[Rfam]
RNA sequence: CCGUGCAGCCGGGGAGUUAGCGGUGCCCUGUACCUACAAUCCGCUACAGUAGGGGUGAUACCAAUCCGAGGGUUUUUUAUUGCGAAGCUGCCCUCUAUAAGUGGCGUUGACGUUUGGGUCUCGCGCAACAGGAAUCUAUGAAUCGUGUCAGGUCAGGAAUGGAGCAGCACUAAGUAGAACCUUCUGUGUGCCGUGAGGCAGCCUGAAUUGAGUUAACUGUAGAGGUAACGUUCGUGGUAGGAAUUCAAAGUGCGGUGCACGG
Numbered sequence: 001c002c003g004u005g006c007a008g009c010c011g012g013g014g015a016g017u018u019a020g021c022g023g024u025g026c027c028c029u030g031u032a033c034c035u036a037c038a039a040u041c042c043g044c045u046a047c048a049g050u051a052g053g054g055g056u057g058a059u060a061c062c063a064a065u066c067c068g069a070g071g072g073u074u075u076u077u078u079a080u081u082g083c084g085a086a087g088c089u090g091c092c093c094u095c096u097a098u099a100a101g102u103g104g105c106g107u108u109g110a111c112g113u114u115u116g117g118g119u120c121u122c123g124c125g126c127a128a129c130a131g132g133a134a135u136c137u138a139u140g141a142a143u144c145g146u147g148u149c150a151g152g153u154c155a156g157g158a159a160u161g162g163a164g165c166a167g168c169a170c171u172a173a174g175u176a177g178a179a180c181c182u183u184c185u186g187u188g189u190g191c192c193g194u195g196a197g198g199c200a201g202c203c204u205g206a207a208u209u210g211a212g213u214u215a216a217c218u219g220u221a222g223a224g225g226u227a228a229c230g231u232u233c234g235u236g237g238u239a240g241g242a243a244u245u246c247a248a249a250g251u252g253c254g255g256u257g258c259a260c261g262g
Stems, first nucleotide, its partner, number of pairs: 001262007008056003011029004016024003033053005061255002066250001070246005077240010089227002093224006101217002103214003112208008120197006126188002129186005135178005145170004153162003
Bacterial large signal recognition particle RNA: a 262-nucleotide RNA sequence from Robinsoniella sp. RHS. It is annotated as a non-coding RNA gene.